[Rfam]
RNA sequence: GUAGAGUAUUCAGAAUUGCAUCAGCAAUACCAACCGAGUGCAGUCACCGCGGUGGUAAAAUAAUACGGGUAUGUACCAAAAUAAACGUUGCCC
Numbered sequence: 001g002u003a004g005a006g007u008a009u010u011c012a013g014a015a016u017u018g019c020a021u022c023a024g025c026a027a028u029a030c031c032a033a034c035c036g037a038g039u040g041c042a043g044u045c046a047c048c049g050c051g052g053u054g055g056u057a058a059a060a061u062a063a064u065a066c067g068g069g070u071a072u073g074u075a076c077c078a079a080a081a082u083a084a085a086c087g088u089u090g091c092c093c
Stems, first nucleotide, its partner, number of pairs: 006066005015028005029056003034052003038047002042088001068077003

Shown here is a 93-nucleotide RNA from Sphingobacterium allocomposti, a member of the family "SAM-I/IV (S-adenosyl methionine) riboswitch aptamer". Rfam 15.1 lists 567 matches to the family in 508 species. Clan: SAM clan. The family's consensus secondary structure is taken from published work.